RNA sequence: AAAAUUCAGAAUCUCCGAGCUUAUUAUUCCUAAAAUGUGUAAUUAAGGAGAGUAAGCCGUGGGUAUAAAGGGAAACCUUUAUGCCUCCCAUUGUGGAAAGGAGUCGUUAACCUAUAGCA
Numbered sequence: 001a002a003a004a005u006u007c008a009g010a011a012u013c014u015c016c017g018a019g020c021u022u023a024u025u026a027u028u029c030c031u032a033a034a035a036u037g038u039g040u041a042a043u044u045a046a047g048g049a050g051a052g053u054a055a056g057c058c059g060u061g062g063g064u065a066u067a068a069a070g071g072g073a074a075a076c077c078u079u080u081a082u083g084c085c086u087c088c089c090a091u092u093g094u095g096g097a098a099a100g101g102a103g104u105c106g107u108u109a110a111c112c113u114a115u116a117g118c119a
Stems, first nucleotide, its partner, number of pairs: 003113001006110001013103004019057007028049003034044003061086011087096002
The record is a 119-nucleotide RNA sequence from Alkaliphilus pronyensis, which matches "Molybdenum/Tungsten riboswitch aptamer (Moco RNA motif)" in Rfam.
Rfam 15.1 lists 1,248 matches to the family in 836 species.
Taxonomically the source falls in Alkaliphilus (Bacteria, Bacillati, Bacillota, Clostridia).
The family's consensus secondary structure is taken from published work.